[Rfam]
RNA sequence: GAAAACAUUGGUGAGAAUCCAAUGCCCCGAAAACCUAAGGGUUCCUUUGCAAGGUUCGUCCACGAAGGGUGAGUCAGGUCCUAAGGCGAGGCUGAAAAGCGUAGUCGAUGGGUAACAGGUUAAUAUUCCUGUACUAUUUUUUAUUGGUAACGAGGGACGGAGAAGGCUAAAUCAGCCGGAUGUUGGUUACUGGUUUAAAUUUUUGAAGGUGAUGAAAGAUGGCGAAAACAUCUUGAGCUAAAAAAUGAAUACAAGCCACUAAGGUGGUAAAGUGAUUGAUGUCAUACUUCCUAGAAAAGCUCGAAAUAUCUUAAAUAAAAAAUACCUGUACCCUAAACUGACACAAGUAGGUAAGUAGAGUAUACUAAGGGGCG
Numbered sequence: 001g002a003a004a005a006c007a008u009u010g011g012u013g014a015g016a017a018u019c020c021a022a023u024g025c026c027c028c029g030a031a032a033a034c035c036u037a038a039g040g041g042u043u044c045c046u047u048u049g050c051a052a053g054g055u056u057c058g059u060c061c062a063c064g065a066a067g068g069g070u071g072a073g074u075c076a077g078g079u080c081c082u083a084a085g086g087c088g089a090g091g092c093u094g095a096a097a098a099g100c101g102u103a104g105u106c107g108a109u110g111g112g113u114a115a116c117a118g119g120u121u122a123a124u125a126u127u128c129c130u131g132u133a134c135u136a137u138u139u140u141u142u143a144u145u146g147g148u149a150a151c152g153a154g155g156g157a158c159g160g161a162g163a164a165g166g167c168u169a170a171a172u173c174a175g176c177c178g179g180a181u182g183u184u185g186g187u188u189a190c191u192g193g194u195u196u197a198a199a200u201u202u203u204u205g206a207a208g209g210u211g212a213u214g215a216a217a218g219a220u221g222g223c224g225a226a227a228a229c230a231u232c233u234u235g236a237g238c239u240a241a242a243a244a245a246u247g248a249a250u251a252c253a254a255g256c257c258a259c260u261a262a263g264g265u266g267g268u269a270a271a272g273u274g275a276u277u278g279a280u281g282u283c284a285u286a287c288u289u290c291c292u293a294g295a296a297a298a299g300c301u302c303g304a305a306a307u308a309u310c311u312u313a314a315a316u317a318a319a320a321a322a323u324a325c326c327u328g329u330a331c332c333c334u335a336a337a338c339u340g341a342c343a344c345a346a347g348u349a350g351g352u353a354a355g356u357a358g359a360g361u362a363u364a365c366u367a368a369g370g371g372g373c374g
Base pairs, nucleotide, nucleotide: 006024007023008022009021010020011019025372026371027370028369033352034351035350036349039332040331044068045067046066047065048064049063053061054060075328076327077326078325080111081110085106086105087104089102091100092099093098115132116131117130118129119128135324136323137322138321139320140319141318142317143316144315145314146310147309151303152302153301154300159290160289161288162287165283166282167281170277171276172275173274174273175194176193177192178191179190195251199246200245201244202243208239209238210237216234217233218232219231220230222229255268256267257266258265259264338347339346354366355365356364357363
RNA: Bacterial large subunit ribosomal RNA, nucleotides 1286 to 1659